[Rfam]
RNA sequence: CCCGGUCCUCGGUAGUGGCCUUCAGAACAUCUGUUCUGCGGGCCUCGAUCGAAGACCGGC
Numbered sequence: 001c002c003c004g005g006u007c008c009u010c011g012g013u014a015g016u017g018g019c020c021u022u023c024a025g026a027a028c029a030u031c032u033g034u035u036c037u038g039c040g041g042g043c044c045u046c047g048a049u050c051g052a053a054g055a056c057c058g059g060c
Base pairs, nucleotide, nucleotide: 002059003058004057005056006055007054009052010051011050012049013048017044018043019042020041021040023038024037025036026035027034028033

Rfam assigns this 60-nucleotide RNA sequence from Nocardioides daedukensis to the family "Actino-pnp RNA". Lineage of the source: Bacteria > Bacillati > Propionibacteriales > Nocardioidaceae > Nocardioides. The match comes from Rfam's covariance-model search (65 bits). By type it is a cis-regulatory element.